[Rfam]
This 157-nucleotide sequence from Streptomyces oceani belongs to the Rfam family "c-di-AMP riboswitch aptamer (ydaO/yuaA leader)".
RNA sequence: GUACGGUCAUCGCCGAAUCCCCGUGGUGCGAGCCAUGGGAGCCGGGGACCCACACGCAGUCCCGGGGGUGAAUCGGGCGGCCUUGAGAGAGGGGCCCGUAGGAGACCUUCCUGCUCCGAACCCGUCAGCUAACCCGGUAGGCGAGAAGGAAGGAAAG
Numbered sequence: 001g002u003a004c005g006g007u008c009a010u011c012g013c014c015g016a017a018u019c020c021c022c023g024u025g026g027u028g029c030g031a032g033c034c035a036u037g038g039g040a041g042c043c044g045g046g047g048a049c050c051c052a053c054a055c056g057c058a059g060u061c062c063c064g065g066g067g068g069u070g071a072a073u074c075g076g077g078c079g080g081c082c083u084u085g086a087g088a089g090a091g092g093g094g095c096c097c098g099u100a101g102g103a104g105a106c107c108u109u110c111c112u113g114c115u116c117c118g119a120a121c122c123c124g125u126c127a128g129c130u131a132a133c134c135c136g137g138u139a140g141g142c143g144a145g146a147a148g149g150a151a152g153g154a155a156a157g
Stems, first nucleotide, its partner, number of pairs: 011143004018040003041138006051065001066123003074098004101117004
Lineage of the source: Bacteria > Actinomycetes > Kitasatosporales > Streptomycetaceae > Streptomyces.